The family of this 133-nucleotide RNA from Neobacillus piezotolerans is "Ribosomal protein L20 leader". The source organism's lineage runs through Bacteria, Bacillota, Bacilli, Caryophanales and Neobacillus. This family is a putative r-protein leader autoregulatory structure found in B. subtilis and other low-GC Gram-positive bacteria. It is located in the 5' untranslated regions of mRNAs encoding initiation factor 3 followed by ribosomal proteins L35 and L20 (infC-rpmI-rplT). A Rho-independent transcription terminator structure that is probably involved in regulation is included at the 3' end. A reference for the family is Zengel and Lindahl (1994), "Diverse mechanisms for regulating ribosomal protein synthesis in Escherichia coli", Prog Nucleic Acid Res Mol Biol. The match comes from Rfam's covariance-model search (78 bits). Gene Ontology term of the family: regulation of gene expression.
RNA sequence: UUGGGAAAGAAGAAGCACCCGCUUCUCACCUGGCUGACGCCUAGGCAGUUGGCAGGUUUUACGUAACUGGUUUUUUUAAACCUUUUUCUGUUCGUAAAAGUGUGGGUGUGUGCAUCCGCGCUUUUUUUAUUGC
Dot-bracket structure: ..........((((((....)))))).(((.....(((((....)).)))....)))...........................................((((((((....)))))))).............